[Rfam]
RNA sequence: GAGCCAAGGGGUUGGGACGCUCUUCAACGGAGCGACCUAGGGGUACAGGGGGUGCCUCCAUCAUGAACCGGGCUCGGUUGAAG
Numbered sequence: 001g002a003g004c005c006a007a008g009g010g011g012u013u014g015g016g017a018c019g020c021u022c023u024u025c026a027a028c029g030g031a032g033c034g035a036c037c038u039a040g041g042g043g044u045a046c047a048g049g050g051g052g053u054g055c056c057u058c059c060a061u062c063a064u065g066a067a068c069c070g071g072g073c074u075c076g077g078u079u080g081a082a083g
Base pairs, nucleotide, nucleotide: 001075002074003073004072005071010069011068012067013066014038015037016036018034020032021031022030023029040058041057042056043055044054045053046052
Dot-bracket structure: (((((....(((((((.(.((((.....)))).).))).(((((((.....))))))).......)))).)))))........